[Rfam]
The family of this 82-nucleotide RNA from Echinostoma caproni is "tRNA". Taxonomically the source falls in Echinostoma (Eukaryota, Rhabditophora, Trematoda, Plagiorchiida). Gene Ontology term of the family: triplet codon-amino acid adaptor activity. It is annotated as a transfer RNA.
RNA sequence: GGCUUCGUCGCUCAGCUGGUAGAGCGUGCGCGUAAAAAGCGUUGGCGGCGUCCAUGCGUGGGUUCGAAUCCCACCGAGGCUA
Number, nucleotide and partner (000 for none) at each position: 001g081002g080003c079004u078005u077006c076007g075008u000009c000010g025011c024012u023013c022014a000015g000016c000017u000018g000019g000020u000021a000022g013023a012024g011025c010026g000027u000028g042029c041030g040031c039032g000033u000034a000035a000036a000037a000038a000039g031040c030041g029042u028043u000044g000045g000046c000047g000048g000049c000050g000051u000052c000053c000054a000055u000056g000057c000058g074059u073060g072061g071062g070063u000064u000065c000066g000067a000068a000069u000070c062071c061072c060073a059074c058075c007076g006077a005078g004079g003080c002081u001082a000